Nucleotides: 128
Base pairs, nucleotide, nucleotide: 003056004055005054006053007052008051016044017043018042019041020040021039022038025036026035027034067121068120076114077113078112083108085106086105088103090102092100
Number, partner (000 for none) and nucleotide at each position: 001000a002000a003056u004055c005054c006053c007052a008051u009000u010000a011000u012000c013000u014000u015000u016044c017043c018042a019041u020040c021039a022038g023000c024000u025036g026035a027034u028000u029000u030000u031000c032000a033000c034027g035026u036025c037000u038022c039021u040020g041019a042018u043017g044016g045000c046000u047000u048000a049000a050000u051008a052007u053006g054005g055004g056003a057000g058000a059000a060000a061000u062000g063000a064000u065000c066000a067121g068120g069000a070000u071000u072000u073000g074000u075000c076114u077113g078112a079000a080000a081000a082000c083108g084000u085106u086105g087000g088103g089000u090102u091000a092100u093000c094000a095000c096000u097000u098000g099000u100092a101000g102090a103088u104000a105086u106085g107000u108083c109000a110000u111000u112078u113077c114076a115000u116000u117000c118000u119000g120068c121067c122000g123000a124000c125000a126000u127000u128000u
The family of this 128-nucleotide sequence from Caenorhabditis brenneri is "Caenorhabditis snoRNA ceN67". On this family, see Jia et al., BMC Mol Biol 2007: "Systematic identification of non-coding RNA 2,2,7-trimethylguanosine cap structures in Caenorhabditis elegans". The source organism's lineage runs through Eukaryota, Opisthokonta, Ecdysozoa, Rhabditoidea and Caenorhabditis. The match comes from Rfam's covariance-model search (78 bits). By type it is an H/ACA-box small nucleolar RNA.